The record is a 93-nucleotide RNA sequence from Paenibacillus thalictri, which matches "pan motif" in Rfam. By type it is a cis-regulatory element. It scores 51 bits against the family's covariance model. Pairs were carried over by alignment from the consensus structure, which is taken from published work. The organism belongs to Paenibacillus, within Bacteria.
RNA sequence: GAGACGAUAUCCCAUGGGGAAUUGUACUCUGAGCCGUUUUUUUUGCAAGUGGAUACGGAUUCUGCUCUGAGCCAAUCGGACCGAGACAGAAGG
Numbered sequence: 001g002a003g004a005c006g007a008u009a010u011c012c013c014a015u016g017g018g019g020a021a022u023u024g025u026a027c028u029c030u031g032a033g034c035c036g037u038u039u040u041u042u043u044u045g046c047a048a049g050u051g052g053a054u055a056c057g058g059a060u061u062c063u064g065c066u067c068u069g070a071g072c073c074a075a076u077c078g079g080a081c082c083g084a085g086a087c088a089g090a091a092g093g
Base pairs, nucleotide, nucleotide: 001029002028003027004025005024006023007022008021010020011019062089063088064087065085066084067083069081072079073078